[Rfam]
RNA sequence: UGUCAGAUUUCACCUAACCUCUGUUAGGCUAUGUCUGGGUAGCAUUGACUGAUACAGACAAAGCCUAGGAGAGGCUAGAUUAGAUCUGCUAG
Numbered sequence: 001u002g003u004c005a006g007a008u009u010u011c012a013c014c015u016a017a018c019c020u021c022u023g024u025u026a027g028g029c030u031a032u033g034u035c036u037g038g039g040u041a042g043c044a045u046u047g048a049c050u051g052a053u054a055c056a057g058a059c060a061a062a063g064c065c066u067a068g069g070a071g072a073g074g075c076u077a078g079a080u081u082a083g084a085u086c087u088g089c090u091a092g
Base pairs, nucleotide, nucleotide: 012080014078015077016076018074019073020072027065028064029063030062032060033059034058035057036056
The record is a 92-nucleotide RNA sequence from Anopheles sinensis, which matches "mir-282 microRNA precursor family" in Rfam. The base pairs follow the family's consensus structure, which was predicted with RNAalifold. Its family is annotated with miRNA-mediated post-transcriptional gene silencing and RISC complex in the Gene Ontology. A reference for the family is Li et al. (2009), "Direct sequencing and expression analysis of a large number of miRNAs in Aedes aegypti and a multi-species survey of novel mosquito miRNAs", BMC Genomics. A search with the family's covariance model found it, with a score of 56 bits.